[Rfam]
RNA: L2-Alphaproteobacteria ribosomal protein leader
RNA sequence: GGGGAUCUUCGGAGCCCUUCACCGCCGGGUGGCGACACCCGUGCAAGCAAACGGAAGACAGGAA
Numbered sequence: 001g002g003g004g005a006u007c008u009u010c011g012g013a014g015c016c017c018u019u020c021a022c023c024g025c026c027g028g029g030u031g032g033c034g035a036c037a038c039c040c041g042u043g044c045a046a047g048c049a050a051a052c053g054g055a056a057g058a059c060a061g062g063a064a
Base pairs, nucleotide, nucleotide: 001018002017003016004015006014008012026041027040028039029038030037031036